[Rfam]
RNA sequence: AAAAAGGUUUUCUAGGGUUCCGUGGCAUGUAGCCAGGCUGGUCCGAGAGAAAACGUACAGAAGUUUGUUCUGUAUACACGGAAGGAGAAAAGCCUGGGAGAA
Numbered sequence: 001a002a003a004a005a006g007g008u009u010u011u012c013u014a015g016g017g018u019u020c021c022g023u024g025g026c027a028u029g030u031a032g033c034c035a036g037g038c039u040g041g042u043c044c045g046a047g048a049g050a051a052a053a054c055g056u057a058c059a060g061a062a063g064u065u066u067g068u069u070c071u072g073u074a075u076a077c078a079c080g081g082a083a084g085g086a087g088a089a090a091a092g093c094c095u096g097g098g099a100g101a102a
Stems, first nucleotide, its partner, number of pairs: 007054006015044002020041002022038001023035004055075008077097001079100001083095003

Description: Rfam assigns this 102-nucleotide sequence from Neobacillus cucumis to the family "Guanidine-I riboswitch aptamer". The pairing is the family consensus, mapped onto this sequence. Taxonomically the source falls in Neobacillus (Bacteria, Bacillota, Caryophanales, Bacillaceae).